RNA sequence: CUGGAGGAAUAAGAAAGUGGAGCCAGUGACAUUGUGCUGACUCCACUGAUACUAUCCUCCUAAAUUAAGUGGUGGAAGAGCAAGGCCUGUCUGCGAGAUAAAGUCAGGACCUACUUCAUCUACCUACAAGG
Numbered sequence: 001c002u003g004g005a006g007g008a009a010u011a012a013g014a015a016a017g018u019g020g021a022g023c024c025a026g027u028g029a030c031a032u033u034g035u036g037c038u039g040a041c042u043c044c045a046c047u048g049a050u051a052c053u054a055u056c057c058u059c060c061u062a063a064a065u066u067a068a069g070u071g072g073u074g075g076a077a078g079a080g081c082a083a084g085g086c087c088u089g090u091c092u093g094c095g096a097g098a099u100a101a102a103g104u105c106a107g108g109a110c111c112u113a114c115u116u117c118a119u120c121u122a123c124c125u126a127c128a129a130g131g
Stems, first nucleotide, its partner, number of pairs: 003060006010051002018045005024039001026035003071124006078117001083112003086108004
Rfam assigns this 131-nucleotide RNA from Ceyx cyanopectus to the family "Small Cajal body specific RNA 15".
By type it is a small Cajal body RNA.
The source organism's lineage runs through Eukaryota, Eumetazoa, Tetrapoda, Telluraves and Ceyx.
It scores 96 bits against the family's covariance model.
The base pairs follow the family's consensus structure, which was predicted with RNAfold.
From the family's description: scaRNAs are a specific class of small nuclear RNAs which localise to the Cajal bodies and guide the modification of RNA polymerase II transcribed spliceosomal RNAs U1, U2, U4, U5 and U12. ACA45 belongs to the H/ACA box class of guide RNAs as it has the predicted hairpin-hinge-hairpin-tail structure, the conserved H/ACA-box motifs and is found associated with GAR1. ACA45 is predicted to guide the pseudouridylation of residue U37 of the U2 spliceosomal snRNA.